Shown here is a 133-nucleotide sequence from Molossus molossus, a member of the family "U11 spliceosomal RNA". A search with the family's covariance model found it, with a score of 91 bits. The family's consensus secondary structure is taken from published work. Its family is annotated with mRNA 5'-splice site recognition, pre-mRNA 5'-splice site binding and U11 snRNP in the Gene Ontology. The family's RNA type in Rfam is spliceosomal small nuclear RNA. On this family, see Montzka and Steitz, Proc Natl Acad Sci U S A 1988: "Additional low-abundance human small nuclear ribonucleoproteins: U11, U12, etc".
Nucleotides: 133
Stems, first nucleotide, its partner, number of pairs: 008084005013026004027055012058077005102130002107126004112122004
Number, partner (000 for none) and nucleotide at each position: 001000g002000a003000a004000u005000a006000g007000g008084g009083c010082u011081u012080c013026u014025g015024u016023c017000u018000u019000g020000a021000g022000u023016g024015g025014c026013a027055c028054a029053u030052g031051u032050a033049g034048a035047g036046c037045a038044g039000c040000a041000u042000g043000g044038u045037u046036g047035c048034u049033c050032u051031a052030c053029a054028u055027g056000c057000a058077g059076a060075a061074u062073u063000g064000a065000c066000a067000u068000c069000a070000a071000g072000a073062g074061a075060u076059u077058u078000c079000a080012g081011a082010a083009g084008c085000a086000u087000a088000a089000u090000u091000u092000u093000u094000u095000g096000g097000u098000a099000c100000u101000u102130g103129g104000c105000a106000g107126c108125u109124g110123g111000u112122g113121a114120u115119c116000c117000c118000u119115g120114g121113u122112u123110c124109u125108g126107g127000a128000a129103c130102c131000c132000c133000a